Annotation
Small nucleolar RNA SNORD46: a 107-nucleotide RNA sequence from Pangasianodon hypophthalmus. NCBI's taxonomy places the organism under Eukaryota, Metazoa, Clupeocephala, Otomorpha, Pangasianodon.
RNA sequence: CAUGUGAGUGAUGUAAACACGUCCUUAGGUCGGUCUGUGUUUGACCGUUUUGGUCAAAGCUUUGGACCUUCCAAUGUUAGGAUCAGUCAUAGUUACACUGACACAUG
Dot-bracket structure: ((((((...............................................................................................))))))

Background:
The match comes from Rfam's covariance-model search (59 bits). Rfam's curators write: U40 is a C/D box small nucleolar RNA, also known as snoZ153 in plants. The human sequence has also been annotated in the sequence databases as U46. U40 is encoded in intron 2 of the ribosomal protein S8 gene in human, and is hypothesised to guide methylation of 2'-O-ribose residues on 28S ribosomal RNA. This family represents vertebrate U40.